[Rfam]
Nucleotides: 089
Stems, first nucleotide, its partner, number of pairs: 012037002017032006041082003045079003048074003055068004
Number, partner (000 for none) and nucleotide at each position: 001000u002000g003000c004000u005000u006000g007000a008000a009000g010000u011000g012037g013036c014000a015000a016000a017032a018031c019030c020029g021028c022027c023000g024000a025000a026000a027022g028021g029020c030019g031018g032017u033000g034000a035000c036013g037012c038000a039000a040000a041082g042081u043080u044000a045079c046078c047077u048074g049073u050072c051000u052000a053000a054000a055068g056067g057066g058065u059000g060000c061000c062000a063000g064000c065058a066057u067056c068055c069000c070000a071000u072050g073049a074048u075000c076000g077047a078046g079045g080043a081042a082041c083000c084000g085000c086000a087000g088000c089000a

The family of this 89-nucleotide RNA sequence from Kineobactrum salinum is "c-di-GMP-I riboswitch aptamer". The match comes from Rfam's covariance-model search (65 bits). From the family's description: GEMM was predicted in a large-scale screen for bacterial structured RNA regulatory elements.